[Rfam]
RNA: Small nucleolar RNA R160
RNA sequence: AGCAAAGUGAUGAGAUAUUUCGAUCUGAAACUAAUGUGGAUAACACACAUGGUCUUCAAAGUUCUCUGAUUGCU
Numbered sequence: 001a002g003c004a005a006a007g008u009g010a011u012g013a014g015a016u017a018u019u020u021c022g023a024u025c026u027g028a029a030a031c032u033a034a035u036g037u038g039g040a041u042a043a044c045a046c047a048c049a050u051g052g053u054c055u056u057c058a059a060a061g062u063u064c065u066c067u068g069a070u071u072g073c074u
Base pairs, nucleotide, nucleotide: 001074002073003072004071005070